[Rfam]
RNA sequence: UGUAACGGGGCAAGGCUUGACCGAGAGGACAUAGCAUGUAUAGGCGCAAUGCAGGGAUUUCGGAAUUUACGCGAUUAGAGUCCUCUCGAG
Numbered sequence: 001u002g003u004a005a006c007g008g009g010g011c012a013a014g015g016c017u018u019g020a021c022c023g024a025g026a027g028g029a030c031a032u033a034g035c036a037u038g039u040a041u042a043g044g045c046g047c048a049a050u051g052c053a054g055g056g057a058u059u060u061c062g063g064a065a066u067u068u069a070c071g072c073g074a075u076u077a078g079a080g081u082c083c084u085c086u087c088g089a090g
Base pairs, nucleotide, nucleotide: 001012002011003010023087024086025085026084027083028082029081030080041077042076043075045073046072051068053066
The family of this 90-nucleotide sequence from Rhinopomastus cyanomelas is "Retrovirus direct repeat 1 (dr1)". Rfam links the family to the GO term viral genome replication. About the family: This family represents the direct repeat 1 (dr1) element commonly found in the 3' UTR of Avian sarcoma, Rous sarcoma and Avian leukosis viruses (Alpharetroviruses and Avian type C retroviruses). dr1 is required for efficient viral replication and is thought to be involved in genomic RNA packaging although this may not be its only role. Lineage of the source: Eukaryota > Eumetazoa > Teleostomi > Telluraves > Rhinopomastus.